Overview
The record is an 85-nucleotide RNA from Litchfieldia salsa, which matches "c-di-GMP-I riboswitch aptamer" in Rfam. From the family's description: GEMM was predicted in a large-scale screen for bacterial structured RNA regulatory elements.
[Rfam]
RNA sequence: CAAACGAAAAGGCAAAGUCACUGAAAGGUGAUGACGCAAAACAGAGGGGCUAAAGUCUUAGUACCAAGCCGGCCCUGUUACCGAA
Dot-bracket structure: ...........((...((((((....))))))...))..((((..(((((....((......))...)))..)).))))......
Numbered sequence: 001c002a003a004a005c006g007a008a009a010a011g012g013c014a015a016a017g018u019c020a021c022u023g024a025a026a027g028g029u030g031a032u033g034a035c036g037c038a039a040a041a042c043a044g045a046g047g048g049g050c051u052a053a054a055g056u057c058u059u060a061g062u063a064c065c066a067a068g069c070c071g072g073c074c075c076u077g078u079u080a081c082c083g084a085a
Stems, first nucleotide, its partner, number of pairs: 012037002017032006040079004046074002048070003055064002

Clan: c-di-GMP_I riboswitch clan. The organism belongs to Litchfieldia, within Bacteria.